Rfam assigns this 153-nucleotide RNA from Tabrizicola piscis to the family "Ruegeria cis2 sRNA".
On this family, see Rivers et al., Front Microbiol 2016: "Experimental Identification of Small Non-Coding RNAs in the Model Marine Bacterium Ruegeria pomeroyi DSS-3".
Pairs were carried over by alignment from the consensus structure, which was predicted with RNAfold.
It scores 60 bits against the family's covariance model.
[Rfam]
RNA sequence: GACGUAUAGCGCGGCUGAUAGUUCAGGAACAUGAACCCGCGGCCCUGAUCGAUGGUAUGAAACAGCGGAUUCCAGUCGAACAUCGCCCGCAUUUCCGGCUUGGCAUUGUUGGCCACGAUCAUCUUGCCCGAGGCGAUCAUGUUGACCCGCAUG
Numbered sequence: 001g002a003c004g005u006a007u008a009g010c011g012c013g014g015c016u017g018a019u020a021g022u023u024c025a026g027g028a029a030c031a032u033g034a035a036c037c038c039g040c041g042g043c044c045c046u047g048a049u050c051g052a053u054g055g056u057a058u059g060a061a062a063c064a065g066c067g068g069a070u071u072c073c074a075g076u077c078g079a080a081c082a083u084c085g086c087c088c089g090c091a092u093u094u095c096c097g098g099c100u101u102g103g104c105a106u107u108g109u110u111g112g113c114c115a116c117g118a119u120c121a122u123c124u125u126g127c128c129c130g131a132g133g134c135g136a137u138c139a140u141g142u143u144g145a146c147c148c149g150c151a152u153g
Stems, first nucleotide, its partner, number of pairs: 001032001005031001007029001010026001013023002037055003040051003063153002065150003070080003085146001087144001089142004094133002096130003099126001102123002109118003